[Rfam]
Source information:
This 78-nucleotide RNA from Albula goreensis belongs to the Rfam family "mir-2188 microRNA precursor family". The source organism's lineage runs through Eukaryota, Bilateria, Craniata, Elopomorpha and Albula. The base pairs follow the family's consensus structure, which was predicted with RNAalifold.

RNA sequence: UGGUGUGGGAAAGGUCCAACCUCACAUGUCCUGUAGAGCUGGAGGAAGGCUGUGUGAGGUCAGACCUGUCCCACACGG
Numbered sequence: 001u002g003g004u005g006u007g008g009g010a011a012a013g014g015u016c017c018a019a020c021c022u023c024a025c026a027u028g029u030c031c032u033g034u035a036g037a038g039c040u041g042g043a044g045g046a047a048g049g050c051u052g053u054g055u056g057a058g059g060u061c062a063g064a065c066c067u068g069u070c071c072c073a074c075a076c077g078g
Base pairs, nucleotide, nucleotide: 001078004075005074006073007072008071009070010069012067013066014065015064016063019060020059021058023056024055025054026053027052028051030049031048032047
Its family is annotated with miRNA-mediated post-transcriptional gene silencing and RISC complex in the Gene Ontology.